About this RNA: This 46-nucleotide sequence from Caldithrix abyssi belongs to the Rfam family "Acido-Lenti-1 RNA". The family has 87 seed sequences and 2,607 matches in Rfam 15.1. The family's RNA type in Rfam is small RNA. The family's consensus secondary structure is taken from published work. The organism belongs to Caldithrix abyssi, within Bacteria.
[Rfam]
Nucleotides: 046
Base pairs, nucleotide, nucleotide: 001020002019003018004017005016006015007014008013033045034044035043036042037041
Number, partner (000 for none) and nucleotide at each position: 001020c002019c003018c004017g005016c006015c007014g008013u009000u010000g011000a012000a013008a014007c015006g016005g017004c018003g019002g020001g021000c022000u023000a024000u025000u026000u027000u028000c029000a030000a031000u032000c033045g034044u035043c036042c037041c038000u039000c040000c041037g042036g043035g044034a045033c046000u